BsrF: a 113-nucleotide RNA from Halalkalibacter krulwichiae.
[Rfam]
RNA sequence: GCGAUGAGCUUAUUUGCAUAAGACGAGAUUGACGCGCCGUCAUCGGCAAUGCACAAUGUGGAGUGCUGUCUCUCGCAGCAAAGCGUAGAAAAAGACGCCUUACGGGGCGUCUU
Dot-bracket structure: .............((((......(((((..(((..((........))...(.((........)).).))))))))..))))..........(((((((((....)))))))))
A reference for the family is Saito et al. (2008), "Novel small RNA-encoding genes in the intergenic regions of Bacillus subtilis", Gene. The match comes from Rfam's covariance-model search (64 bits). The base pairs follow the family's consensus structure, which was predicted with WAR.